Rfam assigns this 255-nucleotide RNA sequence from Pangasianodon hypophthalmus to the family "RNase MRP". The organism belongs to Pangasianodon, within Eukaryota. About the family: RNase MRP is an enzymatically active ribonucleoprotein with two distinct roles in eukaryotes. In mitochondria it plays a direct role in the initiation of mitochondrial DNA replication. In the nucleus it is involved in precursor rRNA processing, where it cleaves the internal transcribed spacer 1 between 18S and 5.8S rRNAs. Rfam classes the family as a ribozyme.
[Rfam]
RNA sequence: GCGCAUGCCUGAAUACUUGCUCUCUAAGCUACACGCUGAGAACCCAGUUUCUCCCCCAGUGCUUAGGGGAAAGUCCCCGGACACUGAACAGAGAUGUUCUGCCUGAAUCGCAGCUCAUGAGCUUGGAACGAUACUACUUCCUGCUAAGACGUCACUUCCUGGCUGAGCAGAGUAUCACAAGCCAUGUUGGUCAUUACAAGAGAAAUGCAGGUACUGUAUGCACUGCAACUGAACGGGGCUCAUUCUCAGGAUGCG
Numbered sequence: 001g002c003g004c005a006u007g008c009c010u011g012a013a014u015a016c017u018u019g020c021u022c023u024c025u026a027a028g029c030u031a032c033a034c035g036c037u038g039a040g041a042a043c044c045c046a047g048u049u050u051c052u053c054c055c056c057c058a059g060u061g062c063u064u065a066g067g068g069g070a071a072a073g074u075c076c077c078c079g080g081a082c083a084c085u086g087a088a089c090a091g092a093g094a095u096g097u098u099c100u101g102c103c104u105g106a107a108u109c110g111c112a113g114c115u116c117a118u119g120a121g122c123u124u125g126g127a128a129c130g131a132u133a134c135u136a137c138u139u140c141c142u143g144c145u146a147a148g149a150c151g152u153c154a155c156u157u158c159c160u161g162g163c164u165g166a167g168c169a170g171a172g173u174a175u176c177a178c179a180a181g182c183c184a185u186g187u188u189g190g191u192c193a194u195u196a197c198a199a200g201a202g203a204a205a206u207g208c209a210g211g212u213a214c215u216g217u218a219u220g221c222a223c224u225g226c227a228a229c230u231g232a233a234c235g236g237g238g239c240u241c242a243u244u245c246u247c248a249g250g251a252u253g254c255g
Stems, first nucleotide, its partner, number of pairs: 002255005008250005015212006023067007038053005072240002075238004087098004099113004115184001121182005131175004141170004151163004214225001216223002